Shown here is a 178-nucleotide RNA from Halococcus hamelinensis, a member of the family "Sense overlapping transcript RNA 0042 (sot)". Lineage of the source: Archaea > Methanobacteriati > Methanobacteriota > Halococcus > Halococcus hamelinensis. About the family: It is associated with IS1341-type transposase (tnpB) genes, at the 3'-end in H. salinarum NRC-1. The tetraloop structural motif may be functional. It is annotated as a small RNA.
RNA sequence: ACGCUACUCCCGAAUCCAGACCCAUUCGACAGAUUGGAUAGGGAUAACGGCUGUUUGGCACAGCCAGCAGUGUGUUCGUUCGACGCUACGGAUGGUCAAUUCCAUCCACAAGAGCGGGCGCAUUGCGAACCCUAAUAUCCCACCGCCGGUAGGGAAUCCUCGCCUUUCAGGGCGGGGA
Numbered sequence: 001a002c003g004c005u006a007c008u009c010c011c012g013a014a015u016c017c018a019g020a021c022c023c024a025u026u027c028g029a030c031a032g033a034u035u036g037g038a039u040a041g042g043g044a045u046a047a048c049g050g051c052u053g054u055u056u057g058g059c060a061c062a063g064c065c066a067g068c069a070g071u072g073u074g075u076u077c078g079u080u081c082g083a084c085g086c087u088a089c090g091g092a093u094g095g096u097c098a099a100u101u102c103c104a105u106c107c108a109c110a111a112g113a114g115c116g117g118g119c120g121c122a123u124u125g126c127g128a129a130c131c132c133u134a135a136u137a138u139c140c141c142a143c144c145g146c147c148g149g150u151a152g153g154g155a156a157u158c159c160u161c162g163c164c165u166u167u168c169a170g171g172g173c174g175g176g177g178a
Base pairs, nucleotide, nucleotide: 003048005047008044009043010042011041014039015038016037017036018035049065050064051063052062053061068125069124070123071122072121073120075118076117077116078115079114080113081112094107095106138155139154140153141152143149144148157178158177159176160175161174162173163172164171165170